[Rfam]
RNA sequence: GCGAGACGGGGGGACCCGUGGCGACGUACGACCGAUAAACUGUUCCACGGACGGCGUCGGGUGCAGCCCCCGCCGUUCGCCCAUGAUCAGCCAGCAGCCGCUGCAACCCCAGGGAG
Numbered sequence: 001g002c003g004a005g006a007c008g009g010g011g012g013g014a015c016c017c018g019u020g021g022c023g024a025c026g027u028a029c030g031a032c033c034g035a036u037a038a039a040c041u042g043u044u045c046c047a048c049g050g051a052c053g054g055c056g057u058c059g060g061g062u063g064c065a066g067c068c069c070c071c072g073c074c075g076u077u078c079g080c081c082c083a084u085g086a087u088c089a090g091c092c093a094g095c096a097g098c099c100g101c102u103g104c105a106a107c108c109c110c111a112g113g114g115a116g
Stems, first nucleotide, its partner, number of pairs: 049078006058072004092103004
RNA: Streptomyces-metK RNA
Organism: Streptomyces pseudogriseolus